RNA sequence: AGGUGAGGUAGAGGCGCGGUUAUCAAGAGUAGCUCCGGGAAGGUCCAACGGCAUGGACAGCGCACCGGAGGGAAAGGGAUCGCCGCCGAAGUUCGGGUUUGCCACACCUGGGCUGGGUCUGCAGUGAAGAACUGCAGGACUGUCACCGUCGGAACAUUCCCACUCCUGAAUCGGCCUAUUUCGCUCGAUGACGGAGGUUUCACGGUGGAGCGCUAUCUUACGA
Numbered sequence: 001a002g003g004u005g006a007g008g009u010a011g012a013g014g015c016g017c018g019g020u021u022a023u024c025a026a027g028a029g030u031a032g033c034u035c036c037g038g039g040a041a042g043g044u045c046c047a048a049c050g051g052c053a054u055g056g057a058c059a060g061c062g063c064a065c066c067g068g069a070g071g072g073a074a075a076g077g078g079a080u081c082g083c084c085g086c087c088g089a090a091g092u093u094c095g096g097g098u099u100u101g102c103c104a105c106a107c108c109u110g111g112g113c114u115g116g117g118u119c120u121g122c123a124g125u126g127a128a129g130a131a132c133u134g135c136a137g138g139a140c141u142g143u144c145a146c147c148g149u150c151g152g153a154a155c156a157u158u159c160c161c162a163c164u165c166c167u168g169a170a171u172c173g174g175c176c177u178a179u180u181u182c183g184c185u186c187g188a189u190g191a192c193g194g195a196g197g198u199u200u201c202a203c204g205g206u207g208g209a210g211c212g213c214u215a216u217c218u219u220a221c222g223a
Stems, first nucleotide, its partner, number of pairs: 006218006016086005022080003033070006090114009100104001115141002118138008143208007
A member of the RNA family "Lysine riboswitch aptamer" from Heliomicrobium modesticaldum, 223 nucleotides long. Rfam links the family to the GO term lysine biosynthetic process. The family's consensus secondary structure is taken from published work.